Annotation
Rfam assigns this 123-nucleotide sequence from Gossypium harknessii to the family "MIR7504 microRNA precursor family". Taxonomically the source falls in Gossypium (Eukaryota, rosids, malvids, Malvaceae).
RNA sequence: UAUAGGAGAAUGACAAAUUAGAUUUUUCCUCCUGAUUUUUAGCAUUUUCAGUUGGAUUUGAAUUUUUUUAGGAGAAAAAAGUUGAAAAUUAAGAGGAAAAAUCUGAUUUGUCAUUCUCCUAUU
Numbered sequence: 001u002a003u004a005g006g007a008g009a010a011u012g013a014c015a016a017a018u019u020a021g022a023u024u025u026u027u028c029c030u031c032c033u034g035a036u037u038u039u040u041a042g043c044a045u046u047u048u049c050a051g052u053u054g055g056a057u058u059u060g061a062a063u064u065u066u067u068u069u070a071g072g073a074g075a076a077a078a079a080a081g082u083u084g085a086a087a088a089u090u091a092a093g094a095g096g097a098a099a100a101a102u103c104u105g106a107u108u109u110g111u112c113a114u115u116c117u118c119c120u121a122u123u
Base pairs, nucleotide, nucleotide: 002122003121004120005119006118007117008116009115010114011113012112013111014110015109016108017107018106019105020104021103022102023101024100025099026098027097029095030094031093033091034090035089036088037087038086039085041083042082045079046078047077048076